[Rfam]
RNA: Glycine riboswitch aptamer
RNA sequence: AUGCGGCACUCUGGAAAGCGGGCGGUCGUCGUGGCCGUCUCACCGAAGGGGUAAUCCGGUUCCGGCCUCGGCGUGAUCCGGUAAAGCUCUCAGGUUUUCCGACAGAGGGGCACGG
Numbered sequence: 001a002u003g004c005g006g007c008a009c010u011c012u013g014g015a016a017a018g019c020g021g022g023c024g025g026u027c028g029u030c031g032u033g034g035c036c037g038u039c040u041c042a043c044c045g046a047a048g049g050g051g052u053a054a055u056c057c058g059g060u061u062c063c064g065g066c067c068u069c070g071g072c073g074u075g076a077u078c079c080g081g082u083a084a085a086g087c088u089c090u091c092a093g094g095u096u097u098u099c100c101g102a103c104a105g106a107g108g109g110g111c112a113c114g115g
Base pairs, nucleotide, nucleotide: 007109009107010106011105012104013103020040021039022038023037024036025035042095043094044093045091046090049089050088051087056081057080058079059078